[Rfam]
RNA: Small nucleolar RNA Z157/R69/R10
Organism: Chenopodium quinoa
RNA sequence: GGGUAUGCAGUGAUGAAGCUUAGUGUGGACUAGAGUUUCUGACCUUCGGGUUGAAGACAAACCCCUUGGCUGUCUGAGUAAACCU
Dot-bracket structure: ((((.(((...........................((((...((...))...)))).....................))).))))
Numbered sequence: 001g002g003g004u005a006u007g008c009a010g011u012g013a014u015g016a017a018g019c020u021u022a023g024u025g026u027g028g029a030c031u032a033g034a035g036u037u038u039c040u041g042a043c044c045u046u047c048g049g050g051u052u053g054a055a056g057a058c059a060a061a062c063c064c065c066u067u068g069g070c071u072g073u074c075u076g077a078g079u080a081a082a083c084c085u
Stems, first nucleotide, its partner, number of pairs: 001085004006080003036056004043049002